[Rfam]
RNA: U7 small nuclear RNA
Organism: Rhinopithecus roxellana
RNA sequence: CAGUGUUACAGCUCUUUUAGAAUUGGUCUGGCUGGUUUUCCAGUCUUCACUGGAAAGCCCUU
Numbered sequence: 001c002a003g004u005g006u007u008a009c010a011g012c013u014c015u016u017u018u019a020g021a022a023u024u025g026g027u028c029u030g031g032c033u034g035g036u037u038u039u040c041c042a043g044u045c046u047u048c049a050c051u052g053g054a055a056a057g058c059c060c061u062u
Base pairs, nucleotide, nucleotide: 034059035058036057037056038055039054040053041052042051043050044049